Source information: A member of the RNA family "MarS sRNA" from Lactococcus lactis, 160 nucleotides long. On this family, see Pappesch et al., Sci Rep 2017: "The Regulatory Small RNA MarS Supports Virulence of Streptococcus pyogenes". Its family is annotated with positive regulation of translation, ncRNA-mediated and mRNA 5'-UTR binding in the Gene Ontology. Rfam's curators write: Interacts with the 5'UTR of the mga transcript (the multiple virulence gene regulator gene) and was renamed MarS for mag-activating regulatory sRNA. In MarS deletion strains expression of mga and several Mga-activated genes is reduced. This down-regulation of virulence factors leads to increased susceptibility of the deletion strain to phagocytosis, reduced adherence to human keratinocytes.
RNA sequence: AUGCGAUGAGUCGAAUAAUUCUACUUUGUAGAAUUUCGAAGCUAAGGAAUACUGGGAAAUUGGGUUUUCCGCGCAGGAAGCGUGAGUAUUUGUCAAAUUGUGUGAACCUUUUUGACACACUUUUAGUGCCUUUAAAAGCCCUCGAAAGAGGGCUUUUUUU
Numbered sequence: 001a002u003g004c005g006a007u008g009a010g011u012c013g014a015a016u017a018a019u020u021c022u023a024c025u026u027u028g029u030a031g032a033a034u035u036u037c038g039a040a041g042c043u044a045a046g047g048a049a050u051a052c053u054g055g056g057a058a059a060u061u062g063g064g065u066u067u068u069c070c071g072c073g074c075a076g077g078a079a080g081c082g083u084g085a086g087u088a089u090u091u092g093u094c095a096a097a098u099u100g101u102g103u104g105a106a107c108c109u110u111u112u113u114g115a116c117a118c119a120c121u122u123u124u125a126g127u128g129c130c131u132u133u134a135a136a137a138g139c140c141c142u143c144g145a146a147a148g149a150g151g152g153c154u155u156u157u158u159u160u
Base pairs, nucleotide, nucleotide: 012038013037014036015035019033020032021031022030023029024028044132045131046130047129048090049089050088051087072082073081074080091117092116093115094114095113096112097111118128119127120126121125135156136155137154138153139152140151141150142149143148